[Rfam]
RNA sequence: GCGCGUUCUCAGGGCGGGGUGAAAUUCCCCACCGGCGGUAUGUGGCGAGCCGAGACAUCGGUUGCACCACGAGCCCGCGAGCGGCCCACAAUGUGGGUGUCAGCAGAUCUGGUGAGAGGCCAGAGCCGACGGUUAAAGUCCGGAUGGAAGAGAAUGAAG
Numbered sequence: 001g002c003g004c005g006u007u008c009u010c011a012g013g014g015c016g017g018g019g020u021g022a023a024a025u026u027c028c029c030c031a032c033c034g035g036c037g038g039u040a041u042g043u044g045g046c047g048a049g050c051c052g053a054g055a056c057a058u059c060g061g062u063u064g065c066a067c068c069a070c071g072a073g074c075c076c077g078c079g080a081g082c083g084g085c086c087c088a089c090a091a092u093g094u095g096g097g098u099g100u101c102a103g104c105a106g107a108u109c110u111g112g113u114g115a116g117a118g119g120c121c122a123g124a125g126c127c128g129a130c131g132g133u134u135a136a137a138g139u140c141c142g143g144a145u146g147g148a149a150g151a152g153a154a155u156g157a158a159g
Base pairs, nucleotide, nucleotide: 004156005155006154007153008152009151010150017029018028019027031139032138033128034127035078036077037076038075081104082103108124109123110122111121112120130142131141132140
RNA: FMN riboswitch aptamer (RFN element)
Organism: Cognatishimia activa